[Rfam]
RNA sequence: GCAUGCUUGGCUCCUUGUACGCCACCCACAGAAGCAAAUCUAACCAUAGAUUAGGUCUUUAUGUGUGGCAUACAGGGAGCCAGGCACAC
Numbered sequence: 001g002c003a004u005g006c007u008u009g010g011c012u013c014c015u016u017g018u019a020c021g022c023c024a025c026c027c028a029c030a031g032a033a034g035c036a037a038a039u040c041u042a043a044c045c046a047u048a049g050a051u052u053a054g055g056u057c058u059u060u061a062u063g064u065g066u067g068g069c070a071u072a073c074a075g076g077g078a079g080c081c082a083g084g085c086a087c088a089c
Stems, first nucleotide, its partner, number of pairs: 001089001004086003008082007016074004021069004027063002
RNA: mir-160 microRNA precursor family
Organism: Carex littledalei